The family of this 123-nucleotide RNA from Gossypium schwendimanii is "MIR7504 microRNA precursor family".
RNA sequence: AAUAGGAGAAUGACAAAUCAGAUUUUUUCUCUUGAUUUUUAACAUUUUUAGUUGAAUUUGAAUUUUUCAGAAGGAAAAAGCUGAAAAUCAAGAGAAAAAAAUCUGAUUUGUUAUUCUCCUAUU
Numbered sequence: 001a002a003u004a005g006g007a008g009a010a011u012g013a014c015a016a017a018u019c020a021g022a023u024u025u026u027u028u029c030u031c032u033u034g035a036u037u038u039u040u041a042a043c044a045u046u047u048u049u050a051g052u053u054g055a056a057u058u059u060g061a062a063u064u065u066u067u068c069a070g071a072a073g074g075a076a077a078a079a080g081c082u083g084a085a086a087a088u089c090a091a092g093a094g095a096a097a098a099a100a101a102u103c104u105g106a107u108u109u110g111u112u113a114u115u116c117u118c119c120u121a122u123u
Base pairs, nucleotide, nucleotide: 001123002122003121004120005119006118007117008116009115010114011113012112013111014110015109016108017107018106019105020104021103022102023100024099025098026097027096029094030093031092032091033090034089035088036087037086038085039084041082045078046077047076048075
Source information:
The match comes from Rfam's covariance-model search (100 bits). The base pairs follow the family's consensus structure, which was predicted with RNAalifold.